The record is a 185-nucleotide RNA from Filibacter tadaridae, which matches "Group II catalytic intron D1-D4-5" in Rfam. The match comes from Rfam's covariance-model search (91 bits). Its family is annotated with Group II intron splicing in the Gene Ontology. The base pairs follow the family's consensus structure. Group II introns are found in rRNA, tRNA and mRNA of organelles in fungi, plants and protists, and also in mRNA in bacteria. Rfam 15.1 lists 720 matches to the family in 418 species.

[Rfam]
RNA sequence: UUCAACUUUACAACGGAGGAUAGGAAUGAUGAAACCACGUUUUCAGAAACUAUCCCAUUGAGACUCCUGCGUGCUUCAUGAAUGACAGUUCAUUUGGUACGAAGCUCAGGUAAAGUCGGCAGAAGGAAGACUAGAGCCACUCUUAUAGAGAAGGUAUGUUAACUGAUAUGCCGGAUGGCUGAAAA
Numbered sequence: 001u002u003c004a005a006c007u008u009u010a011c012a013a014c015g016g017a018g019g020a021u022a023g024g025a026a027u028g029a030u031g032a033a034a035c036c037a038c039g040u041u042u043u044c045a046g047a048a049a050c051u052a053u054c055c056c057a058u059u060g061a062g063a064c065u066c067c068u069g070c071g072u073g074c075u076u077c078a079u080g081a082a083u084g085a086c087a088g089u090u091c092a093u094u095u096g097g098u099a100c101g102a103a104g105c106u107c108a109g110g111u112a113a114a115g116u117c118g119g120c121a122g123a124a125g126g127a128a129g130a131c132u133a134g135a136g137c138c139a140c141u142c143u144u145a146u147a148g149a150g151a152a153g154g155u156a157u158g159u160u161a162a163c164u165g166a167u168a169u170g171c172c173g174g175a176u177g178g179c180u181g182a183a184a185a
Stems, first nucleotide, its partner, number of pairs: 018055006031043004056177004066110004070101006078093006117173005125164002129160002131148003